Notes
The family of this 124-nucleotide RNA from Rattus norvegicus is "Small Cajal body specific RNA 4". Lineage of the source: Eukaryota > Metazoa > Muroidea > Murinae > Rattus. The family is grouped with related families in Rfam's "SCARNA4 clan".
[Rfam]
RNA sequence: GCUGGAAAAGAAGACGGCUGAGUCUGAUGAAGCAAGACUCUGCCGAUACACUCCUCCUAGACAAAGGGGUGGAGAGAGCAGCCCUUACUGAGAAAGCCGCAGGGCUGACUGCUGCCCAGCAUUU
Number, nucleotide and partner (000 for none) at each position: 001g000002c060003u059004g057005g056006a055007a000008a000009a052010g000011a000012a000013g000014a000015c000016g044017g043018c042019u000020g040021a039022g038023u037024c036025u035026g000027a000028u000029g000030a000031a000032g000033c000034a000035a025036g024037a023038c022039u021040c020041u000042g018043c017044c016045g000046a000047u000048a000049c000050a000051c000052u009053c000054c000055u006056c005057c004058u000059a003060g002061a000062c000063a000064a000065a000066g000067g117068g116069g115070u114071g000072g000073a000074g000075a000076g000077a110078g109079c107080a106081g105082c104083c103084c102085u101086u000087a000088c099089u000090g097091a000092g000093a000094a000095a000096g000097c090098c000099g088100c000101a085102g084103g083104g082105c081106u080107g079108a000109c078110u077111g000112c000113u000114g070115c069116c068117c067118a000119g000120c000121a000122u000123u000124u000
From the family's description: scaRNAs are a specific class of small nuclear RNAs which localise to the Cajal bodies and guide the modification of RNA polymerase II transcribed spliceosomal RNAs U1, U2, U4, U5 and U12. ACA26 belongs to the H/ACA box class of guide RNAs as it has the predicted hairpin-hinge-hairpin-tail structure, conserved H/ACA-box motifs and is found associated with GAR1. The literature on the family includes a 2002 paper in EMBO J by Darzacq et al., "Cajal body-specific small nuclear RNAs: a novel class of 2'-O-methylation and pseudouridylation guide RNAs". Rfam 15.1 lists 634 matches to the family in 510 species. It scores 102 bits against the family's covariance model.